A member of the RNA family "U4 spliceosomal RNA" from Callorhinus ursinus, 136 nucleotides long. On this family, see Zwieb, Nucleic Acids Res 1997: "The uRNA database".

RNA sequence: UGCUUUGCGUGGUGGCAGUAUCGUAGCCAAUGAGGUUUAACCGGGGCAUGAUUAUUGCUAAUUGAUUAUUCUAGGUACUGCAUAGAAGUGGAAUAUACAGUGUUUGUCUUUUUAUGACUGGCUUAUUUAUUAUUAU
Numbered sequence: 001u002g003c004u005u006u007g008c009g010u011g012g013u014g015g016c017a018g019u020a021u022c023g024u025a026g027c028c029a030a031u032g033a034g035g036u037u038u039a040a041c042c043g044g045g046g047c048a049u050g051a052u053u054a055u056u057g058c059u060a061a062u063u064g065a066u067u068a069u070u071c072u073a074g075g076u077a078c079u080g081c082a083u084a085g086a087a088g089u090g091g092a093a094u095a096u097a098c099a100g101u102g103u104u105u106g107u108c109u110u111u112u113u114a115u116g117a118c119u120g121g122c123u124u125a126u127u128u129a130u131u132a133u134u135a136u
Stems, first nucleotide, its partner, number of pairs: 020052005026047003034042003082112001084110001087109002091105006
Pairs were carried over by alignment from the consensus structure, which is taken from published work.